RNA sequence: AAUCGUGACGGCGAUGGAUCUCCGCCGGGGCACCUGCCCGAACCGCCUCACCCGAGGCUGAUGGCUCCUUUCCCACC
Dot-bracket structure: .........((((..[[[.[[.))))..................((((......))))....]].]]].........
RNA: Fluoride riboswitch aptamer (crcB RNA motif)
Organism: Rhodococcus triatomae